[Rfam]
The family of this 90-nucleotide RNA sequence is "che1 RNA". The family's RNA type in Rfam is small RNA. It is one of the family's seed sequences. The base pairs follow the family's consensus structure, which is taken from published work.
RNA sequence: CGGACAGGGGGGUUCCCCGCUUCUGGCGGGGCCUGUCCGACCGGCCGCGCAGACGCGUGGCCAGUGGUUGUCGCUCGGGAGUGAUCGCCG
Numbered sequence: 001c002g003g004a005c006a007g008g009g010g011g012g013u014u015c016c017c018c019g020c021u022u023c024u025g026g027c028g029g030g031g032c033c034u035g036u037c038c039g040a041c042c043g044g045c046c047g048c049g050c051a052g053a054c055g056c057g058u059g060g061c062c063a064g065u066g067g068u069u070g071u072c073g074c075u076c077g078g079g080a081g082u083g084a085u086c087g088c089c090g
Stems, first nucleotide, its partner, number of pairs: 001039008015031007043062008
Dot-bracket structure: ((((((((......(((((((...)))))))))))))))...((((((((....))))))))............................